[Rfam]
RNA sequence: CCUGACAAAGGCAAACCGUUCGAGAGGACGGCACGCAAAACCACGGGUCCGUGAGUCGGUCGAUCGCAUUGUUUGCGUUCGGCUUGGCUUCAGGAAAGCCGAGUUGCCGUGG
Number, nucleotide and partner (000 for none) at each position: 001c112002c000003u109004g108005a000006c000007a000008a000009a000010g000011g036012c035013a000014a000015a000016c031017c030018g029019u028020u027021c026022g000023a000024g000025a000026g021027g020028a019029c018030g017031g016032c000033a000034c098035g012036c011037a000038a000039a105040a104041c103042c000043a000044c101045g100046g099047g000048u095049c094050c000051g000052u000053g000054a000055g000056u000057c000058g000059g000060u000061c000062g000063a000064u000065c000066g000067c000068a000069u000070u000071g000072u000073u000074u000075g000076c000077g000078u000079u000080c000081g000082g000083c000084u000085u000086g000087g000088c000089u000090u000091c000092a000093g000094g049095a048096a000097a000098g034099c046100c045101g044102a000103g041104u040105u039106g000107c000108c004109g003110u000111g000112g001
Record summary: The family of this 112-nucleotide sequence from Rhodopirellula baltica is "c-di-GMP-I-GGC riboswitch aptamer". NCBI's taxonomy places the organism under Bacteria, Planctomycetota, Pirellulales, Rhodopirellula, Rhodopirellula baltica. The family's consensus secondary structure is taken from published work. A reference for the family is Weinberg et al. (2017), "Bioinformatic analysis of riboswitch structures uncovers variant classes with altered ligand specificity", Proc Natl Acad Sci U S A. Gene Ontology term of the family: cyclic-di-GMP binding. Clan: c-di-GMP_I riboswitch clan. Rfam 15.1 lists 1,298 matches to the family in 717 species.